[Rfam]
RNA: Xanthomonas sRNA sX9
Organism: Xanthomonas oryzae
Nucleotides: 076
Base pairs, nucleotide, nucleotide: 002016003015005013006012020035021034022033023032047074049072050071051070052069053068
Number, partner (000 for none) and nucleotide at each position: 001000a002016u003015g004000u005013a006012c007000c008000a009000c010000g011000c012006g013005u014000c015003c016002a017000c018000u019000g020035c021034g022033g023032u024000u025000a026000c027000u028000g029000c030000g031000c032023g033022c034021c035020g036000u037000c038000c039000g040000c041000g042000c043000c044000c045000a046000c047074c048000c049072g050071a051070c052069a053068g054000c055000u056000g057000c058000u059000c060000g061000c062000g063000a064000c065000g066000u067000g068053u069052u070051g071050u072049u073000a074047g075000c076000c